[Rfam]
Nucleotides: 166
Base pairs, nucleotide, nucleotide: 003089004088005087006086007085008084016078017077018076020074021073022072023071024070025069026068028062029061030060032057033056034054036052037051038050039049040048041047103160104159105158124139125138129134141156142155143154144153145152146151
Number, partner (000 for none) and nucleotide at each position: 001000g002000a003089g004088c005087a006086c007085u008084u009000g010000a011000u012000a013000c014000u015000a016078a017077c018076c019000g020074a021073g022072c023071u024070g025069u026068c027000u028062g029061u030060g031000g032057c033056c034054c035000a036052g037051g038050c039049c040048u041047u042000g043000u044000g045000c046000a047041a048040a049039g050038g051037u052036c053000u054034g055000a056033g057032g058000u059000a060030c061029a062028c063000c064000u065000u066000g067000u068026g069025a070024u071023g072022g073021c074020u075000g076018g077017g078016u079000c080000u081000g082000g083000a084008a085007a086006g087005u088004g089003c090000a091000a092000g093000a094000c095000u096000a097000a098000a099000g100000c101000a102000a103160g104159c105158c106000a107000u108000g109000a110000a111000g112000u113000g114000u115000u116000u117000a118000a119000g120000c121000u122000c123000a124139g125138u126000g127000u128000g129134u130000g131000a132000a133000g134129g135000g136000u137000g138125a139124c140000a141156c142155u143154g144153g145152g146151u147000u148000a149000u150000a151146g152145c153144u154143c155142a156141g157000a158105g159104g160103c161000a162000c163000a164000g165000a166000a
The family of this 166-nucleotide RNA from Indicator maculatus is "Small Cajal body specific RNA 1".
Rfam 15.1 lists 715 matches to the family in 617 species.
The family's consensus secondary structure was predicted with RNAalifold.
NCBI's taxonomy places the organism under Eukaryota, Opisthokonta, Tetrapoda, Neoaves, Indicator.
From the family's description: scaRNAs are a specific class of small nuclear RNAs which localise to the Cajal bodies and guide the modification of RNA polymerase II transcribed spliceosomal RNAs U1, U2, U4, U5 and U12. ACA35 belong to the H/ACA box class of guide RNAs as it has the predicted hairpin-hinge-hairpin-tail structure, conserved H/ACA-box motifs and is found associated with GAR1. It is predicted to guide pseudouridylation of the U2 spliceosomal snRNA at residue U89.
Its family is annotated with RNA processing, nucleolus and Cajal body in the Gene Ontology.
Rfam classes the family as a small Cajal body RNA.